A member of the RNA family "ZMP/ZTP riboswitch aptamer (pfl RNA motif)" from Georgenia satyanarayanai, 90 nucleotides long. It scores 51 bits against the family's covariance model.
RNA sequence: GACCGUGGCCGUGACUGGCGCAGAGGUGGAGUCACCACCGGGAAGCGGCCGGAAGUCCCCUGCAGGGUGCCGCCCGCCUGGGUGCCCGGG
Numbered sequence: 001g002a003c004c005g006u007g008g009c010c011g012u013g014a015c016u017g018g019c020g021c022a023g024a025g026g027u028g029g030a031g032u033c034a035c036c037a038c039c040g041g042g043a044a045g046c047g048g049c050c051g052g053a054a055g056u057c058c059c060c061u062g063c064a065g066g067g068u069g070c071c072g073c074c075c076g077c078c079u080g081g082g083u084g085c086c087c088g089g090g
Stems, first nucleotide, its partner, number of pairs: 003052002007050006015042002017078004026038004067085005